[Rfam]
RNA: Mammalian CPEB3 ribozyme
Organism: Alligator mississippiensis
RNA sequence: AUACUUUGAUAUGCCAAAACAGAAGUGCUUACAGCGUGGCCCUGUCAGAUUCCAGUGAAUCUGUAAAUUCUGCU
Numbered sequence: 001a002u003a004c005u006u007u008g009a010u011a012u013g014c015c016a017a018a019a020c021a022g023a024a025g026u027g028c029u030u031a032c033a034g035c036g037u038g039g040c041c042c043u044g045u046c047a048g049a050u051u052c053c054a055g056u057g058a059a060u061c062u063g064u065a066a067a068u069u070c071u072g073c074u
Stems, first nucleotide, its partner, number of pairs: 008042001013040003018074001020072005025037003046063007
Dot-bracket structure: .......[....[[[..(.((((((((.......)))]]].]...(((((((....)))))))....))))).)